[Rfam]
RNA sequence: CUAUAUGUACCCUGUAGAUCCGAAUUUGUGUAGAGGAAGUUGGGUCACAAAUUCGCAUCUAGGGGAAUAUGUAGU
Numbered sequence: 001c002u003a004u005a006u007g008u009a010c011c012c013u014g015u016a017g018a019u020c021c022g023a024a025u026u027u028g029u030g031u032a033g034a035g036g037a038a039g040u041u042g043g044g045u046c047a048c049a050a051a052u053u054c055g056c057a058u059c060u061a062g063g064g065g066a067a068u069a070u071g072u073a074g075u
Stems, first nucleotide, its partner, number of pairs: 002073006010065003016060004021055010